[Rfam]
RNA sequence: CUGCCAGAAUAUAAAUGUCCAAUUGGACUAGGUGAUCUCAACCGAUGUUUCGGACAGCGGUUCGAUUCCGCUCAACUCCAUUUUCAUUUGGGGUUGUAAUGGUUUCGACGGGGCGUAAGGAAGAUGACUGAAGCCUGCUCGGUUAGAGCAAAAACACAAACGCUAACAAAAUCGUUAGUUUCUCCCGUCAAACAGCACCAGUUGCUGCUUGAUCUCAAAGGAGAUGGGGUGAUAUCAGCCUUAUCAACCAAAUGAUCCAAGGAGCCUGGAAGGGCUC
Numbered sequence: 001c002u003g004c005c006a007g008a009a010u011a012u013a014a015a016u017g018u019c020c021a022a023u024u025g026g027a028c029u030a031g032g033u034g035a036u037c038u039c040a041a042c043c044g045a046u047g048u049u050u051c052g053g054a055c056a057g058c059g060g061u062u063c064g065a066u067u068c069c070g071c072u073c074a075a076c077u078c079c080a081u082u083u084u085c086a087u088u089u090g091g092g093g094u095u096g097u098a099a100u101g102g103u104u105u106c107g108a109c110g111g112g113g114c115g116u117a118a119g120g121a122a123g124a125u126g127a128c129u130g131a132a133g134c135c136u137g138c139u140c141g142g143u144u145a146g147a148g149c150a151a152a153a154a155c156a157c158a159a160a161c162g163c164u165a166a167c168a169a170a171a172u173c174g175u176u177a178g179u180u181u182c183u184c185c186c187g188u189c190a191a192a193c194a195g196c197a198c199c200a201g202u203u204g205c206u207g208c209u210u211g212a213u214c215u216c217a218a219a220g221g222a223g224a225u226g227g228g229g230u231g232a233u234a235u236c237a238g239c240c241u242u243a244u245c246a247a248c249c250a251a252a253u254g255a256u257c258c259a260a261g262g263a264g265c266c267u268g269g270a271a272g273g274g275c276u277c
Stems, first nucleotide, its partner, number of pairs: 017028004031129003035125004042120002045116008056072005073096007136150005191210002194206004220249002223245008262277006